RNA sequence: AUCACCUGGGAAUCUUGUUAAAAUGCAGAUGCUGAAGCAGAAGGUCUGGGGAGGACCCGAUAUUUUGCAUUUCUAACAAGCUCCCAGGUGAUGCCUA
Numbered sequence: 001a002u003c004a005c006c007u008g009g010g011a012a013u014c015u016u017g018u019u020a021a022a023a024u025g026c027a028g029a030u031g032c033u034g035a036a037g038c039a040g041a042a043g044g045u046c047u048g049g050g051g052a053g054g055a056c057c058c059g060a061u062a063u064u065u066u067g068c069a070u071u072u073c074u075a076a077c078a079a080g081c082u083c084c085c086a087g088g089u090g091a092u093g094c095c096u097a
Stems, first nucleotide, its partner, number of pairs: 003090003009084003014080007021072003025068005033060001
A member of the RNA family "mir-544 microRNA precursor family" from Neomonachus schauinslandi, 97 nucleotides long. It scores 71 bits against the family's covariance model. The family has 16 seed sequences and 10,750 matches in Rfam 15.1.